RNA sequence: UGGAUGAAGACAGAGGAGUGGAGUUCGACACUAGCAUGUAUCACUUUGGUGAACAUGUACCUCCAGCGAGGGAGAGCAAGAGCUUGACUGACUGCAGAAGUGGUGCAAGAAGCAGGACAAACUGCUCGCCAAGUGUUUCAAGACUAUCAAGCUUCUAACAGAUAAGCUGAGUUGUUCCUCCUCCACCACUGCUAUUCCA
Numbered sequence: 001u002g003g004a005u006g007a008a009g010a011c012a013g014a015g016g017a018g019u020g021g022a023g024u025u026c027g028a029c030a031c032u033a034g035c036a037u038g039u040a041u042c043a044c045u046u047u048g049g050u051g052a053a054c055a056u057g058u059a060c061c062u063c064c065a066g067c068g069a070g071g072g073a074g075a076g077c078a079a080g081a082g083c084u085u086g087a088c089u090g091a092c093u094g095c096a097g098a099a100g101u102g103g104u105g106c107a108a109g110a111a112g113c114a115g116g117a118c119a120a121a122c123u124g125c126u127c128g129c130c131a132a133g134u135g136u137u138u139c140a141a142g143a144c145u146a147u148c149a150a151g152c153u154u155c156u157a158a159c160a161g162a163u164a165a166g167c168u169g170a171g172u173u174g175u176u177c178c179u180c181c182u183c184c185a186c187c188a189c190u191g192c193u194a195u196u197c198c199a
Stems, first nucleotide, its partner, number of pairs: 001199004013186001015183002018180001020178005

The family of this 199-nucleotide sequence from Arabidopsis thaliana is "MIR854 microRNA precursor family". Its family is annotated with miRNA-mediated post-transcriptional gene silencing and RISC complex in the Gene Ontology. Taxonomically the source falls in Arabidopsis (Eukaryota, Streptophyta, Embryophyta, Brassicales).